RNA sequence: AUAAUGGUACUUCCGUCCAGCCACAGACUCAAGCAAUGGGGGCGGCUCCGAGAGAACCUCGGAGGGGUGAGAUGCCCAUGA
Numbered sequence: 001a002u003a004a005u006g007g008u009a010c011u012u013c014c015g016u017c018c019a020g021c022c023a024c025a026g027a028c029u030c031a032a033g034c035a036a037u038g039g040g041g042g043c044g045g046c047u048c049c050g051a052g053a054g055a056a057c058c059u060c061g062g063a064g065g066g067g068u069g070a071g072a073u074g075c076c077c078a079u080g081a
Base pairs, nucleotide, nucleotide: 012078013045014044015043016042017041018040046064047063048062050060051059052058065077066076067075
RNA: pemK RNA
Organism: Ruminococcaceae bacterium FB2012